[Rfam]
RNA sequence: UAGACAGAUUAUUGUAUUCGACUGUAUUCACGGCGCAAUUCAUGGUCUAUUCAGCUGUUUUUAAAUGGAAAGUGAAUCAAUUAACAUAAUAGACUCUU
Numbered sequence: 001u002a003g004a005c006a007g008a009u010u011a012u013u014g015u016a017u018u019c020g021a022c023u024g025u026a027u028u029c030a031c032g033g034c035g036c037a038a039u040u041c042a043u044g045g046u047c048u049a050u051u052c053a054g055c056u057g058u059u060u061u062u063a064a065a066u067g068g069a070a071a072g073u074g075a076a077u078c079a080a081u082u083a084a085c086a087u088a089a090u091a092g093a094c095u096c097u098u
Base pairs, nucleotide, nucleotide: 002097003096004095009092010091011090012089013088014087015086017084018083020082021081023079024078026077027076028075029074030073031072034067035066037060038059042058043057044056045055
RNA: MIR6152 microRNA precursor family